The family of this 123-nucleotide RNA from Gossypium anomalum is "MIR7504 microRNA precursor family". Gene Ontology terms of the family: RISC complex and miRNA-mediated post-transcriptional gene silencing. Lineage of the source: Eukaryota > Viridiplantae > Tracheophyta > eudicotyledons > Gossypium. The match comes from Rfam's covariance-model search (94 bits). Rfam 15.1 lists 7,343 matches to the family in 61 species. Pairs were carried over by alignment from the consensus structure, which was predicted with RNAalifold.
[Rfam]
RNA sequence: AAUAGUUUAAUGCCACAUCAACAUUUUCAUCCUGAAUUUUAGGAUUUUUGUUCUGAAAAAAAUCAAAUCUAAAUGAAACUCCUGAAAUUUAGGAUGAAAUUACUAGUGUGGCAUUAAACUAUU
Number, nucleotide and partner (000 for none) at each position: 001a123002a122003u121004a120005g119006u118007u117008u116009a115010a114011u113012g112013c111014c110015a109016c108017a107018u106019c000020a104021a000022c000023a100024u099025u000026u098027u097028c000029a095030u094031c093032c092033u091034g090035a089036a088037u087038u086039u085040u000041a083042g082043g000044a000045u000046u078047u077048u076049u000050g000051u000052u000053c000054u000055g000056a000057a000058a000059a000060a000061a000062a000063u000064c000065a000066a000067a000068u000069c000070u000071a000072a000073a000074u000075g000076a048077a047078a046079c000080u000081c000082c042083u041084g000085a039086a038087a037088u036089u035090u034091a033092g032093g031094a030095u029096g000097a027098a026099a024100u023101u000102a000103c000104u020105a000106g018107u017108g016109u015110g014111g013112c012113a011114u010115u009116a008117a007118a006119c005120u004121a003122u002123u001